[Rfam]
RNA sequence: UAUCCCUAUGAUGAUUGUAUAAAAGUAGUGGACUGAAGCUUACUGAUGAGAGAUCAAUUCUGAGGGAUA
Numbered sequence: 001u002a003u004c005c006c007u008a009u010g011a012u013g014a015u016u017g018u019a020u021a022a023a024a025g026u027a028g029u030g031g032a033c034u035g036a037a038g039c040u041u042a043c044u045g046a047u048g049a050g051a052g053a054u055c056a057a058u059u060c061u062g063a064g065g066g067a068u069a
Base pairs, nucleotide, nucleotide: 001069002068003067004066005065006064
RNA: Small nucleolar RNA R21